[Rfam]
RNA sequence: CUUUCCAACGGCGAUGAGGUCCGCCUGGAACCGCCUUCGUGGCUAAUGACUUCUACCGAAUC
Numbered sequence: 001c002u003u004u005c006c007a008a009c010g011g012c013g014a015u016g017a018g019g020u021c022c023g024c025c026u027g028g029a030a031c032c033g034c035c036u037u038c039g040u041g042g043c044u045a046a047u048g049a050c051u052u053c054u055a056c057c058g059a060a061u062c
Stems, first nucleotide, its partner, number of pairs: 010025004016053006033043003

The family of this 62-nucleotide RNA sequence from Acidithiobacillus caldus is "Fluoride riboswitch aptamer (crcB RNA motif)". The family has 289 seed sequences and 2,293 matches in Rfam 15.1.